[Rfam]
RNA sequence: GUGACAACGAGAGAGAGCACGCUGGAAUGCUUUCACGCAAUAAGCCUGGAUGUGUUCUUGCGUGCCCUUUCCCGUUGUCGC
Numbered sequence: 001g002u003g004a005c006a007a008c009g010a011g012a013g014a015g016a017g018c019a020c021g022c023u024g025g026a027a028u029g030c031u032u033u034c035a036c037g038c039a040a041u042a043a044g045c046c047u048g049g050a051u052g053u054g055u056u057c058u059u060g061c062g063u064g065c066c067c068u069u070u071c072c073c074g075u076u077g078u079c080g081c
Base pairs, nucleotide, nucleotide: 002080003079004078005077006076008074009073012070013069015067017065018064019063020062021061022060024058025057026056
Shown here is an 81-nucleotide RNA sequence from Physcomitrium patens, a member of the family "MIR535 microRNA precursor family". Rfam's curators put it in the seed alignment. The family has 20 seed sequences and 544 matches in Rfam 15.1. Its family is annotated with miRNA-mediated post-transcriptional gene silencing and RISC complex in the Gene Ontology. The organism belongs to Physcomitrium, within Eukaryota.